[Rfam]
RNA sequence: CAGCUGUCAUGGCCGAAGGGAGACCGCCCGCAUCCGCGAGGUGUGUGUGGCUUGGGGGUCACCUGAUCCCCCAACCAGCGGACUUGGUGCCUGGUUCGAAUCGCCGGGUCGCGAGGUUUUGUCCUUCACGGGGCAACGUCUUCUCCCGCGCUCGUGCGAGUAGUCCACGACCGGCUGCGGCGCGCUAAGCCCUGGCCCGUACCCUCGAGGGAAGCGAUUCUGCAGAGACCGGGCCCCCCGGCGAUGGCGGCACCAGAUCACACCGCCGCUGCACACCCACCGCGCUGAAUGGGAUGGUCGACUUUCUUUUU
Numbered sequence: 001c002a003g004c005u006g007u008c009a010u011g012g013c014c015g016a017a018g019g020g021a022g023a024c025c026g027c028c029c030g031c032a033u034c035c036g037c038g039a040g041g042u043g044u045g046u047g048u049g050g051c052u053u054g055g056g057g058g059u060c061a062c063c064u065g066a067u068c069c070c071c072c073a074a075c076c077a078g079c080g081g082a083c084u085u086g087g088u089g090c091c092u093g094g095u096u097c098g099a100a101u102c103g104c105c106g107g108g109u110c111g112c113g114a115g116g117u118u119u120u121g122u123c124c125u126u127c128a129c130g131g132g133g134c135a136a137c138g139u140c141u142u143c144u145c146c147c148g149c150g151c152u153c154g155u156g157c158g159a160g161u162a163g164u165c166c167a168c169g170a171c172c173g174g175c176u177g178c179g180g181c182g183c184g185c186u187a188a189g190c191c192c193u194g195g196c197c198c199g200u201a202c203c204c205u206c207g208a209g210g211g212a213a214g215c216g217a218u219u220c221u222g223c224a225g226a227g228a229c230c231g232g233g234c235c236c237c238c239c240g241g242c243g244a245u246g247g248c249g250g251c252a253c254c255a256g257a258u259c260a261c262a263c264c265g266c267c268g269c270u271g272c273a274c275a276c277c278c279a280c281c282g283c284g285c286u287g288a289a290u291g292g293g294a295u296g297g298u299c300g301a302c303u304u305u306c307u308u309u310u311u
Base pairs, nucleotide, nucleotide: 001015003013004012016309017308018307019306020305021304022303027296031291032290033289035287036286037284038283040281041280042279043278045276046275047274048273049272054071055070056069057068058067059066060065078270081266085265086264087263088262089261091256092255093254094253095252096250097249098248100245101244102243103242104241105240106239107238108237143180144179146177148175149173150172152170153169154168155167156166158165159164185189194235195234196233197232198231199230204227205226206225211220212219213218
The record is a 311-nucleotide sequence from Histoplasma capsulatum, which matches "Fungal signal recognition particle RNA" in Rfam. The source organism's lineage runs through Eukaryota, saccharomyceta, leotiomyceta, Eurotiomycetes and Histoplasma capsulatum. The literature on the family includes a 2000 paper in Science by Batey et al., "Crystal structure of the ribonucleoprotein core of the signal recognition particle". The match comes from Rfam's covariance-model search (148 bits). Clan: SRP clan. By type it is a non-coding RNA gene.